[Rfam]
Overview:
A member of the RNA family "ASpks TB sRNA" from Streptomyces albiflaviniger, 75 nucleotides long. Rfam classes the family as an antisense RNA.
RNA sequence: CUUGAUGGAGCCCAGCCAGAGGGGCUGGUCCUCCGGGCGGUUCUGGCCGUAGGUGGCCAGGAGGGCCUGGGCCUC
Numbered sequence: 001c002u003u004g005a006u007g008g009a010g011c012c013c014a015g016c017c018a019g020a021g022g023g024g025c026u027g028g029u030c031c032u033c034c035g036g037g038c039g040g041u042u043c044u045g046g047c048c049g050u051a052g053g054u055g056g057c058c059a060g061g062a063g064g065g066c067c068u069g070g071g072c073c074u075c
Stems, first nucleotide, its partner, number of pairs: 014026004031071003038065001043060003047056003